[Rfam]
RNA sequence: CCACAGAACUAAGUACUAGUGCCGCAGGUGAUAAGUUCUGUUGAUUUAUUCCCCUGCAGCACAAGUGCUUCACUCUGUGG
Numbered sequence: 001c002c003a004c005a006g007a008a009c010u011a012a013g014u015a016c017u018a019g020u021g022c023c024g025c026a027g028g029u030g031a032u033a034a035g036u037u038c039u040g041u042u043g044a045u046u047u048a049u050u051c052c053c054c055u056g057c058a059g060c061a062c063a064a065g066u067g068c069u070u071c072a073c074u075c076u077g078u079g080g
Stems, first nucleotide, its partner, number of pairs: 001080007011070007019062001024057005030051001
Dot-bracket structure: (((((((...(((((((.(....(((((.(....................).)))))....).)))))))...)))))))
This 80-nucleotide RNA from Apolygus lucorum belongs to the Rfam family "mir-252 microRNA precursor family". Pairs were carried over by alignment from the consensus structure, which was predicted with RNAalifold. Lineage of the source: Eukaryota > Opisthokonta > Protostomia > Neoheteroptera > Apolygus. The family has 44 seed sequences and 422 matches in Rfam 15.1. A search with the family's covariance model found it, with a score of 63 bits. A reference for the family is Ruby et al. (2006), "Large-scale sequencing reveals 21U-RNAs and additional microRNAs and endogenous siRNAs in C. elegans", Cell. The family is grouped with related families in Rfam's "mir-252 microRNA precursor family".